Notes
A member of the RNA family "mir-344 microRNA precursor family" from Mesocricetus auratus, 65 nucleotides long. Taxonomically the source falls in Mesocricetus (Eukaryota, Bilateria, Chordata, Theria). Its family is annotated with miRNA-mediated post-transcriptional gene silencing and RISC complex in the Gene Ontology.

[Rfam]
RNA sequence: UUUUCAGUCAGGCUUGGCCUAAGUCCAGCUAACAGCUGGAUUUUAGGCCGAAGCCUGACUGGAAA
Numbered sequence: 001u002u003u004u005c006a007g008u009c010a011g012g013c014u015u016g017g018c019c020u021a022a023g024u025c026c027a028g029c030u031a032a033c034a035g036c037u038g039g040a041u042u043u044u045a046g047g048c049c050g051a052a053g054c055c056u057g058a059c060u061g062g063a064a065a
Base pairs, nucleotide, nucleotide: 007059008058009057011055012054013053014052015050016049017048018047019046020045021044022043025039026038027037028036029035